[Rfam]
RNA: mir-147 microRNA precursor family
Organism: Ceyx cyanopectus
RNA sequence: UAUGAAUCCAGUGGAAUCACUUCUGCACAGACUUGACUACAGAAAUCAGUGUGCGGAAAUGCUUCUGCUGCAUUCCUA
Numbered sequence: 001u002a003u004g005a006a007u008c009c010a011g012u013g014g015a016a017u018c019a020c021u022u023c024u025g026c027a028c029a030g031a032c033u034u035g036a037c038u039a040c041a042g043a044a045a046u047c048a049g050u051g052u053g054c055g056g057a058a059a060u061g062c063u064u065c066u067g068c069u070g071c072a073u074u075c076c077u078a
Base pairs, nucleotide, nucleotide: 001078002077004075005074006073007072009070010069011068012067013066014065015064016063018061019060021058022057023056024055025054026053027052028051029050032049033048